[Rfam]
RNA: Small nucleolar RNA Z13/snr52
RNA sequence: AUCACCAGCAUGAUGAAGUAUUUUGCGGAUGUAAAAGGGUUCAUCGCACAUGCGAGAGCCCCGUUUACCGAGAGCGCAUAAAAAUCGUGUGGAUCUUUCCGCUGCCUUCCUUCUGAUUUGGUGA
Numbered sequence: 001a002u003c004a005c006c007a008g009c010a011u012g013a014u015g016a017a018g019u020a021u022u023u024u025g026c027g028g029a030u031g032u033a034a035a036a037g038g039g040u041u042c043a044u045c046g047c048a049c050a051u052g053c054g055a056g057a058g059c060c061c062c063g064u065u066u067a068c069c070g071a072g073a074g075c076g077c078a079u080a081a082a083a084a085u086c087g088u089g090u091g092g093a094u095c096u097u098u099c100c101g102c103u104g105c106c107u108u109c110c111u112u113c114u115g116a117u118u119u120g121g122u123g124a
Stems, first nucleotide, its partner, number of pairs: 003123003026101004